[Rfam]
RNA: Small nucleolar RNA Z278
Organism: Ipomoea nil
RNA sequence: GCCUAUGAUGUUUUAAUCCGUAUUAAUGAGGUGUAGUGGAGCCAAGUCCCUGCUUUGCAGGGGGAACCUCUUGGUGAAGCUACAUUCCAAAUGAUCAUGCUGGAUUUUCUGAGGC
Numbered sequence: 001g002c003c004u005a006u007g008a009u010g011u012u013u014u015a016a017u018c019c020g021u022a023u024u025a026a027u028g029a030g031g032u033g034u035a036g037u038g039g040a041g042c043c044a045a046g047u048c049c050c051u052g053c054u055u056u057g058c059a060g061g062g063g064g065a066a067c068c069u070c071u072u073g074g075u076g077a078a079g080c081u082a083c084a085u086u087c088c089a090a091a092u093g094a095u096c097a098u099g100c101u102g103g104a105u106u107u108u109c110u111g112a113g114g115c
Stems, first nucleotide, its partner, number of pairs: 001115003048062005